[Rfam]
RNA sequence: UGCCUCAGUCUGGAAUAAAUGGGGCACAUUUCUACUUUUGUGUCCCAGUUGAUCAGUGAGGCUACAAAAUAAAACAGGCUGAACUGUGCUUUCAUCAUUGUAAGGCUAAUUACACUGGUGACAAUGAAGCCUGUAAUAAGA
Numbered sequence: 001u002g003c004c005u006c007a008g009u010c011u012g013g014a015a016u017a018a019a020u021g022g023g024g025c026a027c028a029u030u031u032c033u034a035c036u037u038u039u040g041u042g043u044c045c046c047a048g049u050u051g052a053u054c055a056g057u058g059a060g061g062c063u064a065c066a067a068a069a070u071a072a073a074a075c076a077g078g079c080u081g082a083a084c085u086g087u088g089c090u091u092u093c094a095u096c097a098u099u100g101u102a103a104g105g106c107u108a109a110u111u112a113c114a115c116u117g118g119u120g121a122c123a124a125u126g127a128a129g130c131c132u133g134u135a136a137u138a139a140g141a
Stems, first nucleotide, its partner, number of pairs: 002062003006058002021046007074134005093120005
RNA: Small nucleolar RNA SNORA1